The family of this 79-nucleotide sequence from Mesocricetus auratus is "Small nucleolar RNA SNORD115".

RNA sequence: GGGUCUAUGAUCACAAACCAAUGUCAUGAAGAGAGGUGAUAACAUAAAAAUAAUGCUUAAUCGGAUUAUGCUGAGGGCC
Numbered sequence: 001g002g003g004u005c006u007a008u009g010a011u012c013a014c015a016a017a018c019c020a021a022u023g024u025c026a027u028g029a030a031g032a033g034a035g036g037u038g039a040u041a042a043c044a045u046a047a048a049a050a051u052a053a054u055g056c057u058u059a060a061u062c063g064g065a066u067u068a069u070g071c072u073g074a075g076g077g078c079c
Stems, first nucleotide, its partner, number of pairs: 001079002004076001005073001008070002

Record summary
Its family is annotated with nucleolus and RNA processing in the Gene Ontology. Lineage of the source: Eukaryota > Eumetazoa > Euteleostomi > Cricetinae > Mesocricetus. On this family, see Cavaille et al., Proc Natl Acad Sci U S A 2000: "Identification of brain-specific and imprinted small nucleolar RNA genes exhibiting an unusual genomic organization".